[Rfam]
RNA sequence: GCUUUAGGAUUCAAAAUGAGUCCCCAAUAAAUUAAUUUAUUGGAAAAUUGCACUAUAUGCUGGAAAUUCCUUAGAGCUUUAAGUACCAAUAUUUUUAACAUAUUGGUAAAAAUCUUAAAGAUUGGACAAUCAGCAGGAAACCAAUAAAAUAGACAAUUAUUUUUAGUAGGAUCCUCAGAGACUACACGUGCAACACUUAAAUUGUAUAAAAAUAAGUGAUGAUAUAGUCCUUUCCAACGUGAAAACGUUGG
Numbered sequence: 001g002c003u004u005u006a007g008g009a010u011u012c013a014a015a016a017u018g019a020g021u022c023c024c025c026a027a028u029a030a031a032u033u034a035a036u037u038u039a040u041u042g043g044a045a046a047a048u049u050g051c052a053c054u055a056u057a058u059g060c061u062g063g064a065a066a067u068u069c070c071u072u073a074g075a076g077c078u079u080u081a082a083g084u085a086c087c088a089a090u091a092u093u094u095u096u097a098a099c100a101u102a103u104u105g106g107u108a109a110a111a112a113u114c115u116u117a118a119a120g121a122u123u124g125g126a127c128a129a130u131c132a133g134c135a136g137g138a139a140a141c142c143a144a145u146a147a148a149a150u151a152g153a154c155a156a157u158u159a160u161u162u163u164u165a166g167u168a169g170g171a172u173c174c175u176c177a178g179a180g181a182c183u184a185c186a187c188g189u190g191c192a193a194c195a196c197u198u199a200a201a202u203u204g205u206a207u208a209a210a211a212a213u214a215a216g217u218g219a220u221g222a223u224a225u226a227g228u229c230c231u232u233u234c235c236a237a238c239g240u241g242a243a244a245a246c247g248u249u250g251g
Base pairs, nucleotide, nucleotide: 001022003020004019005018006017029038030037031036048193049192050191051190053188058135059134060133061132062131063130068126069125070124136174137173141169148164149163151161152160178230180229181228182227183226184225196216197215198214199213202210203209236249237248238247239246240245